RNA sequence: AGCACCCCACCUUGAGUCGCCGCAUCCGAGCGUCGACCAGUGUGAUUCUACACGAGCGUCCGCUUGGGUGGGGAGAGAGU
Dot-bracket structure: ....((((((((...((((.(((......))).))))..((((......))))((((....)))))))))))).......